[Rfam]
A member of the RNA family "Archaeal large subunit ribosomal RNA" from Candidatus Nitrosotenuis cloacae, 103 nucleotides of a longer RNA. The family is grouped with related families in Rfam's "LSU clan". The literature on the family includes a 2002 paper in BMC Bioinformatics by Cannone et al., "The comparative RNA web (CRW) site: an online database of comparative sequence and structure information for ribosomal, intron, and other RNAs". A search with the family's covariance model found it, with a score of 2716 bits.
RNA sequence: UGGGUGGCAUAGAAGGUGAUUUUCCAGGUUGGAGGUCCUAGCAAUAGGGCUGAAGAUUUGGGUUUCUAGUCAUCAGUGUCAUCCGUUCCGUCUAGAAACACGG
Numbered sequence: 001u002g003g004g005u006g007g008c009a010u011a012g013a014a015g016g017u018g019a020u021u022u023u024c025c026a027g028g029u030u031g032g033a034g035g036u037c038c039u040a041g042c043a044a045u046a047g048g049g050c051u052g053a054a055g056a057u058u059u060g061g062g063u064u065u066c067u068a069g070u071c072a073u074c075a076g077u078g079u080c081a082u083c084c085g086u087u088c089c090g091u092c093u094a095g096a097a098a099c100a101c102g103g
Stems, first nucleotide, its partner, number of pairs: 001085010015074002023062005036049005088103004
NCBI's taxonomy places the organism under Archaea, Thermoproteati, Nitrososphaerota, Candidatus Nitrosotenuis.